Record summary
Shown here is an 86-nucleotide sequence from Ignelater luminosus, a member of the family "Selenocysteine transfer RNA". The organism belongs to Ignelater, within Eukaryota. Its family is annotated with triplet codon-amino acid adaptor activity in the Gene Ontology. The family's consensus secondary structure is taken from published work. It scores 79 bits against the family's covariance model.

RNA sequence: GCUCAGUUGACCUUCAGUGGUCUGGGGUGCAGACUUCAAAUCUGUAGUCGGCUAGCGCCGAAGUGGUUCGAUUCCACCUACUGAGC
Numbered sequence: 001g002c003u004c005a006g007u008u009g010a011c012c013u014u015c016a017g018u019g020g021u022c023u024g025g026g027g028u029g030c031a032g033a034c035u036u037c038a039a040a041u042c043u044g045u046a047g048u049c050g051g052c053u054a055g056c057g058c059c060g061a062a063g064u065g066g067u068u069c070g071a072u073u074c075c076a077c078c079u080a081c082u083g084a085g086c
Base pairs, nucleotide, nucleotide: 001086002085003084004083005082006081007080009078012027013026014025015024016023017022028046029045030044031043032042033041048061049060050059051058052057063077064076065075066074